Archaeal large subunit ribosomal RNA: a 374-nucleotide part of an RNA from uncultured crenarchaeote. Its family is annotated with structural constituent of ribosome and ribosome in the Gene Ontology. The organism belongs to Thermoproteota, within Archaea. Rfam 15.1 lists 2,955 matches to the family in 1,139 species.
RNA sequence: CGGGUAUACCGUAUGGCAAGGGAACUCGGCAAAAUAGCUCCGUACCUAUGGUAUAAGGAGUGCCUGCAGUUUUUACGAGGAGUAGGGAUUGCAGGUCGCAGUGACUAGGGGGUCCCGACUGUUUAAUAAAAACACAGGUGGUCGCUAGUCCGAAAGGAUGUGUAUGGCCUCUGUAUCCUGGCCAGUGGCGGUACCUAAAACCUGGGUACAACCGGGCUAAGGGCCGCUAAACGCCGGGAGUAACUCUGACUCUCUUAAGGUAGCCAAAUGCCUUGUCGGGUAAGUUCCGACGUGCAUGAAUGGAACAACGAGGGCCCCGCUGUCCCUGCCUACAACCCGGUGAAGCCACAUAACGUGGACGAACAGUCCACGAA
Numbered sequence: 001c002g003g004g005u006a007u008a009c010c011g012u013a014u015g016g017c018a019a020g021g022g023a024a025c026u027c028g029g030c031a032a033a034a035u036a037g038c039u040c041c042g043u044a045c046c047u048a049u050g051g052u053a054u055a056a057g058g059a060g061u062g063c064c065u066g067c068a069g070u071u072u073u074u075a076c077g078a079g080g081a082g083u084a085g086g087g088a089u090u091g092c093a094g095g096u097c098g099c100a101g102u103g104a105c106u107a108g109g110g111g112g113u114c115c116c117g118a119c120u121g122u123u124u125a126a127u128a129a130a131a132a133c134a135c136a137g138g139u140g141g142u143c144g145c146u147a148g149u150c151c152g153a154a155a156g157g158a159u160g161u162g163u164a165u166g167g168c169c170u171c172u173g174u175a176u177c178c179u180g181g182c183c184a185g186u187g188g189c190g191g192u193a194c195c196u197a198a199a200a201c202c203u204g205g206g207u208a209c210a211a212c213c214g215g216g217c218u219a220a221g222g223g224c225c226g227c228u229a230a231a232c233g234c235c236g237g238g239a240g241u242a243a244c245u246c247u248g249a250c251u252c253u254c255u256u257a258a259g260g261u262a263g264c265c266a267a268a269u270g271c272c273u274u275g276u277c278g279g280g281u282a283a284g285u286u287c288c289g290a291c292g293u294g295c296a297u298g299a300a301u302g303g304a305a306c307a308a309c310g311a312g313g314g315c316c317c318c319g320c321u322g323u324c325c326c327u328g329c330c331u332a333c334a335a336c337c338c339g340g341u342g343a344a345g346c347c348a349c350a351u352a353a354c355g356u357g358g359a360c361g362a363a364c365a366g367u368c369c370a371c372g373a374a
Stems, first nucleotide, its partner, number of pairs: 001339004011333003015330004020325003037061005046051001062096015097101001109318007116310002120134003137172002140169005145162001148159004176304003180235003185232002187228005194223003201216005236254006255259001275291006354372005